[Rfam]
Background
The record is a 112-nucleotide RNA from Nakamurella leprariae, which matches "SAM (S-adenosyl methionine) riboswitch aptamer" in Rfam. SAM-IV is a mRNA element that regulates gene expression via direct sensing of S-adenosylmethionine (SAM or AdoMet). NCBI's taxonomy places the organism under Bacteria, Bacillati, Actinomycetota, Nakamurellales, Nakamurella. Rfam 15.1 lists 2,360 matches to the family in 1,305 species. A search with the family's covariance model found it, with a score of 92 bits. Gene Ontology terms of the family: S-adenosylmethionine metabolic process and regulation of gene expression.
RNA sequence: GGUCAUGAGUUCCGACGUCAAGCCCUGGCUCGUCGGACGGCAACCCUCACACAGUGGCGGGGUGCCCCAGGUGAAGACCAGGCGUGGAGGACCCUCCCCGCAAGCACUCGCC
Numbered sequence: 001g002g003u004c005a006u007g008a009g010u011u012c013c014g015a016c017g018u019c020a021a022g023c024c025c026u027g028g029c030u031c032g033u034c035g036g037a038c039g040g041c042a043a044c045c046c047u048c049a050c051a052c053a054g055u056g057g058c059g060g061g062g063u064g065c066c067c068c069a070g071g072u073g074a075a076g077a078c079c080a081g082g083c084g085u086g087g088a089g090g091a092c093c094c095u096c097c098c099c100g101c102a103a104g105c106a107c108u109c110g111c112c
Base pairs, nucleotide, nucleotide: 001079002078003077004076009038011037012036013035014034015033016032021030022029039066040065041064044062045061046060048057082101083100084099086097087096088095089094